The record is a 334-nucleotide sequence from Lachnospiraceae bacterium G41, which matches "Bacterial RNase P class A" in Rfam. Rfam describes the family as follows. Ribonuclease P (RNase P) is a ubiquitous endoribonuclease, found in archaea, bacteria and eukarya as well as chloroplasts and mitochondria.
RNA sequence: UGAGUGAAACGGGCGAUCGCGGCUCCAUUAGGAGGUGAGGAAAGUCCGGGCUUCGCAGGGCAGGAUGCCGGAUAACGUCCGGUAGAGGUGACUCUCAGGAAAGUGCAACAGAAAAUAACCGCCGCGUAAGCGGUAAGGGUGAAAAGGCGGUGUAAGAGACCACCGCUUAUCCGGUAACGGGUAAGGCUGUGUAAACCCCAUCCGAAGCAAGACCAAAUUGAGCUAAAAAGUCGGCCCGGCUUGGCUCAGGUAGGUUGCUUGAAAUUCGUGGCGACACGGAUUCUAGAUAGAUGAUCGUCCAAGACAGAACCCGGCUUACAGUUUCACUCAGCUU
Numbered sequence: 001u002g003a004g005u006g007a008a009a010c011g012g013g014c015g016a017u018c019g020c021g022g023c024u025c026c027a028u029u030a031g032g033a034g035g036u037g038a039g040g041a042a043a044g045u046c047c048g049g050g051c052u053u054c055g056c057a058g059g060g061c062a063g064g065a066u067g068c069c070g071g072a073u074a075a076c077g078u079c080c081g082g083u084a085g086a087g088g089u090g091a092c093u094c095u096c097a098g099g100a101a102a103g104u105g106c107a108a109c110a111g112a113a114a115a116u117a118a119c120c121g122c123c124g125c126g127u128a129a130g131c132g133g134u135a136a137g138g139g140u141g142a143a144a145a146g147g148c149g150g151u152g153u154a155a156g157a158g159a160c161c162a163c164c165g166c167u168u169a170u171c172c173g174g175u176a177a178c179g180g181g182u183a184a185g186g187c188u189g190u191g192u193a194a195a196c197c198c199c200a201u202c203c204g205a206a207g208c209a210a211g212a213c214c215a216a217a218u219u220g221a222g223c224u225a226a227a228a229a230g231u232c233g234g235c236c237c238g239g240c241u242u243g244g245c246u247c248a249g250g251u252a253g254g255u256u257g258c259u260u261g262a263a264a265u266u267c268g269u270g271g272c273g274a275c276a277c278g279g280a281u282u283c284u285a286g287a288u289a290g291a292u293g294a295u296c297g298u299c300c301a302a303g304a305c306a307g308a309a310c311c312c313g314g315c316u317u318a319c320a321g322u323u324u325c326a327c328u329c330a331g332c333u334u
Stems, first nucleotide, its partner, number of pairs: 001330010011319001012299007020037002023034004042317003046314005051207004058237004063203005068082005083097001084095004098198002103196002105192003119138002121134005146164002149161003165187001166185008211256004220247006229241004263282008